[Rfam]
RNA: U4atac minor spliceosomal RNA
RNA sequence: ACCACCCUUUUCUUGGGGUAGCGCUACUGUCCAGUGCAUGAAGAGUGAGGGCAGUACUGCUAAUACAUACAAAACAUGCCCACAUCAACUAGAGCUUUGCUUUACUUUGGUGCAAUUUUUGGAAAA
Numbered sequence: 001a002c003c004a005c006c007c008u009u010u011u012c013u014u015g016g017g018g019u020a021g022c023g024c025u026a027c028u029g030u031c032c033a034g035u036g037c038a039u040g041a042a043g044a045g046u047g048a049g050g051g052c053a054g055u056a057c058u059g060c061u062a063a064u065a066c067a068u069a070c071a072a073a074a075c076a077u078g079c080c081c082a083c084a085u086c087a088a089c090u091a092g093a094g095c096u097u098u099g100c101u102u103u104a105c106u107u108u109g110g111u112g113c114a115a116u117u118u119u120u121g122g123a124a125a126a
Base pairs, nucleotide, nucleotide: 006018007017008016009015021060022059023058026055027054028053029052030051031050032049038046039045083112084111085110086109087108090104091103092102093101094100095099